[Rfam]
Overview: The record is a 173-nucleotide RNA sequence from Thermanaeromonas sp. C210, which matches "Group II catalytic intron D1-D4-3" in Rfam. The pairing is the family consensus, mapped onto this sequence. Lineage of the source: Bacteria > Bacillati > Bacillota > Neomoorellaceae > Thermanaeromonas.

RNA sequence: UCCGUCGUGAGGCGGAAUCCGAAGGAAGCCGGCGGCAAACCUCCGGUCCGACGAACAGGAACCGCAUAGGAGGCUAGCAGCAGUUGGAUGAGCUUGCGAAACAAAGCGAAGUCCUUGCUACGGAAGACUGCUGAGAGUAUAUGCGGUGGGUGGAAGGAGGGAAAGUCAACGUC
Dot-bracket structure: ((((((....))))))...........(.((...((...(((((.(((((...........((((((.....(((..((((((..((((..((((........))))...)))).............))))))..)))..)))))))))))....)))))....))...)).)